[Rfam]
RNA: Putative RNA-dependent RNA polymerase ribosomal frameshift site
RNA sequence: GGGAAGGAAGGGCGGCUCCGACCGCCGGAACAACCGGA
Numbered sequence: 001g002g003g004a005a006g007g008a009a010g011g012g013c014g015g016c017u018c019c020g021a022c023c024g025c026c027g028g029a030a031c032a033a034c035c036g037g038a
Stems, first nucleotide, its partner, number of pairs: 011026005018037003